[Rfam]
RNA sequence: CGGUGCUUGCAUCCCCUGGCACCCCAUGACCGGAUGAAGAGGAUUCGGUCAUCAGUGGGGUAAUCAGACCGCGGUUCCCCACUCCGUCAUCGGAGGU
Numbered sequence: 001c002g003g004u005g006c007u008u009g010c011a012u013c014c015c016c017u018g019g020c021a022c023c024c025c026a027u028g029a030c031c032g033g034a035u036g037a038a039g040a041g042g043a044u045u046c047g048g049u050c051a052u053c054a055g056u057g058g059g060g061u062a063a064u065c066a067g068a069c070c071g072c073g074g075u076u077c078c079c080c081a082c083u084c085c086g087u088c089a090u091c092g093g094a095g096g097u
Base pairs, nucleotide, nucleotide: 026052027051028050031047032046033045034044035043057085058084059083060082061081062076063075064074065073067072